[Rfam]
RNA sequence: GAUCUUUGAUCGCGUCGAGGGUCUGAUUGCCGGCUUGUCCCCCGCCGCGUCGGACUUGGACAAAGGCCUUAUCCCCUCUCCGGGCCUUUGUCCCCAUUUCAAGCCGCCAUAGCCGACCUCCAGGCUAUGGCGGCUUUGU
Numbered sequence: 001g002a003u004c005u006u007u008g009a010u011c012g013c014g015u016c017g018a019g020g021g022u023c024u025g026a027u028u029g030c031c032g033g034c035u036u037g038u039c040c041c042c043c044g045c046c047g048c049g050u051c052g053g054a055c056u057u058g059g060a061c062a063a064a065g066g067c068c069u070u071a072u073c074c075c076c077u078c079u080c081c082g083g084g085c086c087u088u089u090g091u092c093c094c095c096a097u098u099u100c101a102a103g104c105c106g107c108c109a110u111a112g113c114c115g116a117c118c119u120c121c122a123g124g125c126u127a128u129g130g131c132g133g134c135u136u137u138g139u
Base pairs, nucleotide, nucleotide: 022054023053024052025051026050027049032046033045034044058093059092060091061090062089063088064087065086066085067084068083101135104133105132106131107130108129109128110127111126112125113124114123